[Rfam]
RNA sequence: CGGGGGAGGCCGAAUCCUGGGCUGUGUCCCCGGCGCCCUGUGCUCCGGGGCCUGCGCUGUGGGAUUCGCGCUCCCGGUCGUGCAGCUGCCA
Numbered sequence: 001c002g003g004g005g006g007a008g009g010c011c012g013a014a015u016c017c018u019g020g021g022c023u024g025u026g027u028c029c030c031c032g033g034c035g036c037c038c039u040g041u042g043c044u045c046c047g048g049g050g051c052c053u054g055c056g057c058u059g060u061g062g063g064a065u066u067c068g069c070g071c072u073c074c075c076g077g078u079c080g081u082g083c084a085g086c087u088g089c090c091a
Base pairs, nucleotide, nucleotide: 002090003089005087006086009083010082011080012079013078016077017076019074020073021072023070024069025068026067027064028063030062031059032058033057034056035055036054040052042051043050044049
RNA: mir-8799 microRNA precursor family
Organism: Nyctereutes procyonoides